Rfam assigns this 127-nucleotide sequence from Jaculus jaculus to the family "Small nucleolar RNA SNORA33". It scores 100 bits against the family's covariance model. The source organism's lineage runs through Eukaryota, Euteleostomi, Glires, Myomorpha and Jaculus. From the family's description: ACA33 is a member of the H/ACA class of snoRNA that guide the sites of modification of uridines to pseudouridines.
RNA sequence: AAGCCAAUUACUCAGCUUAUCUGAAUGUGUUUCUGCAGAAAUUUAGAAAUAGUUGGCAAUACUGUUGUCAUAUUAGGAGGCUUAAGGACAAAUGGUGUCAUUAUGGUCCCUCAAAAUGGCUACAAUA
Numbered sequence: 001a002a003g004c005c006a007a008u009u010a011c012u013c014a015g016c017u018u019a020u021c022u023g024a025a026u027g028u029g030u031u032u033c034u035g036c037a038g039a040a041a042u043u044u045a046g047a048a049a050u051a052g053u054u055g056g057c058a059a060u061a062c063u064g065u066u067g068u069c070a071u072a073u074u075a076g077g078a079g080g081c082u083u084a085a086g087g088a089c090a091a092a093u094g095g096u097g098u099c100a101u102u103a104u105g106g107u108c109c110c111u112c113a114a115a116a117u118g119g120c121u122a123c124a125a126u127a
Stems, first nucleotide, its partner, number of pairs: 003057005012039002015036002067120004079107001081105001083103003087099003